[Rfam]
Notes
The family of this 104-nucleotide sequence from Triticum aestivum is "Small nucleolar RNA Z107/R87". The organism belongs to Triticum, within Eukaryota. It scores 87 bits against the family's covariance model.
RNA sequence: GAUGGUAGUGAUAAUUUGCAAAUAUUCAAGCUCAACAUACCAAAUCACAGGUUUUCUCCCAGGAGUUGAUUUGUAUGCUGAUUAUCUCACUGAACCAAGCCAUC
Number, nucleotide and partner (000 for none) at each position: 001g104002a103003u102004g101005g100006u099007a000008g000009u000010g000011a000012u000013a000014a000015u000016u000017u000018g000019c000020a000021a000022a000023u000024a000025u000026u000027c000028a000029a000030g000031c000032u000033c000034a000035a000036c000037a000038u000039a000040c000041c000042a000043a000044a000045u000046c000047a000048c000049a000050g000051g000052u000053u000054u000055u000056c000057u000058c000059c000060c000061a000062g000063g000064a000065g000066u000067u000068g000069a000070u000071u000072u000073g000074u000075a000076u000077g000078c000079u000080g000081a000082u000083u000084a000085u000086c000087u000088c000089a000090c000091u000092g000093a000094a000095c000096c000097a000098a000099g006100c005101c004102a003103u002104c001